RNA sequence: ACUAUUUGAAGUGGAGAUUGUGCUUCCACGCACCCUAGUGGUCAAAAGAGAUGCAGGAUUUGGCACACCUGCCAAAUAAC
Numbered sequence: 001a002c003u004a005u006u007u008g009a010a011g012u013g014g015a016g017a018u019u020g021u022g023c024u025u026c027c028a029c030g031c032a033c034c035c036u037a038g039u040g041g042u043c044a045a046a047a048g049a050g051a052u053g054c055a056g057g058a059u060u061u062g063g064c065a066c067a068c069c070u071g072c073c074a075a076a077u078a079a080c
Base pairs, nucleotide, nucleotide: 003078004077005076006075007074008073011029012028013027014026015025020066021065022064023063024062031048032042033041034040053072054071055070056069057068

The family of this 80-nucleotide RNA sequence is "skipping-rope RNA". Rfam's curators put it in the seed alignment.